[Rfam]
Nucleotides: 075
Base pairs, nucleotide, nucleotide: 014026015025016024017023033069038065039064045058047056048055049054
Number, partner (000 for none) and nucleotide at each position: 001000c002000u003000u004000g005000a006000c007000c008000g009000a010000g011000c012000c013000g014026a015025g016024c017023c018000a019000c020000a021000a022000c023017g024016g025015c026014u027000c028000g029000u030000c031000g032000u033069c034000c035000g036000g037000g038065c039064g040000a041000u042000u043000a044000c045058g046000g047056c048055c049054g050000u051000a052000g053000g054049u055048g056047g057000c058045c059000a060000a061000c062000a063000g064039c065038g066000c067000c068000u069033g070000c071000g072000c073000c074000u075000c
The family of this 75-nucleotide RNA sequence from Amycolatopsis xylanica is "ASpks TB sRNA".
The family's consensus secondary structure is taken from published work.
It scores 74 bits against the family's covariance model.
The family has 77 seed sequences and 9,052 matches in Rfam 15.1.